The record is a 73-nucleotide sequence from Actinomarinicola tropica, which matches "tRNA" in Rfam. The match comes from Rfam's covariance-model search (73 bits). Its family is annotated with triplet codon-amino acid adaptor activity in the Gene Ontology. The family's consensus secondary structure is taken from published work. By type it is a transfer RNA.
RNA sequence: GGGGGCGUAGCUCAGUUGGCAGAGCGGCGGCUUUGCAAGCCGUAGGUCGUGGGUUCGAUUCCCAUCGCCUCCA
Number, nucleotide and partner (000 for none) at each position: 001g072002g071003g070004g069005g068006c067007g066008u000009a000010g025011c024012u023013c022014a000015g000016u000017u000018g000019g000020c000021a000022g013023a012024g011025c010026g000027g043028c042029g041030g040031c039032u000033u000034u000035g000036c000037a000038a000039g031040c030041c029042g028043u027044a000045g000046g000047u000048c000049g065050u064051g063052g062053g061054u000055u000056c000057g000058a000059u000060u000061c053062c052063c051064a050065u049066c007067g006068c005069c004070u003071c002072c001073a000